[Rfam]
RNA sequence: AGCGGUAGAUCUAGACAAAUGAAGGCGGGUCUUCGGACCAGCAGCUAGGAUUAAACCUGGUGGGAUCCUUCGUCUAGAAUACCGCUGUGUU
Number, nucleotide and partner (000 for none) at each position: 001a086002g085003c084004g083005g082006u081007a080008g000009a000010u078011c077012u076013a075014g074015a000016c000017a000018a000019a073020u072021g071022a070023a069024g068025g042026c041027g000028g039029g038030u037031c036032u000033u000034c000035g000036g031037a030038c029039c028040a000041g026042c025043a000044g000045c060046u059047a058048g057049g000050a000051u000052u000053a000054a000055a000056c000057c048058u047059g046060g045061u000062g000063g000064g000065a000066u000067c000068c024069u023070u022071c021072g020073u019074c014075u013076a012077g011078a010079a000080u007081a006082c005083c004084g003085c002086u001087g000088u000089g000090u000091u000

This 91-nucleotide sequence belongs to the Rfam family "DUF3800-VII RNA".
The base pairs follow the family's consensus structure, which is taken from published work.
Rfam classes the family as a small RNA.